The family of this 214-nucleotide RNA sequence from Mycolicibacterium doricum is "Group II catalytic intron D1-D4-6". About the family: Group II introns are found in rRNA, tRNA and mRNA of organelles in fungi, plants and protists, and also in mRNA in bacteria. Taxonomically the source falls in Mycobacterium (subgen. Mycolicibacterium) (Bacteria, Bacillati, Actinomycetes, Mycobacteriales). A reference for the family is Chu et al. (2001), "Control of branch-site choice by a group II intron", EMBO J.

RNA sequence: UGAGAGCUCUACAUCGAAGGAGUAGCGGUCGACGGUGGCCCCGAGCCAUGCGUCGGCGUUCCGUGAGGGCGCAGCGAAGCGUUGGACAGGGGUGGGCUAUUGAGCCACGAAAUGAGAGAGUCCGGGGGUGCCGACGUCGUCGAACUUGGCGGAAGGCAACAUCGUCGGCUGCGCUAUCGCGAGUCGUCGAUGGACCCCGCGCGGUCAGAGAACC
Numbered sequence: 001u002g003a004g005a006g007c008u009c010u011a012c013a014u015c016g017a018a019g020g021a022g023u024a025g026c027g028g029u030c031g032a033c034g035g036u037g038g039c040c041c042c043g044a045g046c047c048a049u050g051c052g053u054c055g056g057c058g059u060u061c062c063g064u065g066a067g068g069g070c071g072c073a074g075c076g077a078a079g080c081g082u083u084g085g086a087c088a089g090g091g092g093u094g095g096g097c098u099a100u101u102g103a104g105c106c107a108c109g110a111a112a113u114g115a116g117a118g119a120g121u122c123c124g125g126g127g128g129u130g131c132c133g134a135c136g137u138c139g140u141c142g143a144a145c146u147u148g149g150c151g152g153a154a155g156g157c158a159a160c161a162u163c164g165u166c167g168g169c170u171g172c173g174c175u176a177u178c179g180c181g182a183g184u185c186g187u188c189g190a191u192g193g194a195c196c197c198c199g200c201g202c203g204g205u206c207a208g209a210g211a212a213c214c
Base pairs, nucleotide, nucleotide: 012037013036014035015034016033020030021029023182025180026179039092040091041090042089045087046085047084048083049081050080051076052075053074055072057071058070060069061068062067101208102206104205105204106203108201109200123199124198126197127196128195129194130157131156132155135151136150137149138148162193163192164191165190166189167188168187169186171184172183